[Rfam]
RNA sequence: AGGGGGAGGGUGGUGGCAUCACUGGUACUGAUGUAAUGUCUGCCCACAGUACCACACAUGCCGCCCCCCACACCCUAC
Numbered sequence: 001a002g003g004g005g006g007a008g009g010g011u012g013g014u015g016g017c018a019u020c021a022c023u024g025g026u027a028c029u030g031a032u033g034u035a036a037u038g039u040c041u042g043c044c045c046a047c048a049g050u051a052c053c054a055c056a057c058a059u060g061c062c063g064c065c066c067c068c069c070a071c072a073c074c075c076u077a078c
Base pairs, nucleotide, nucleotide: 001076002075003074004073006071008069009068012065013064014063015062016061017060018059019058023054024053025052026051027050028049029048030047
Rfam assigns this 78-nucleotide sequence from Eptesicus fuscus to the family "mir-9186 microRNA precursor family". Rfam's curators put it in the seed alignment.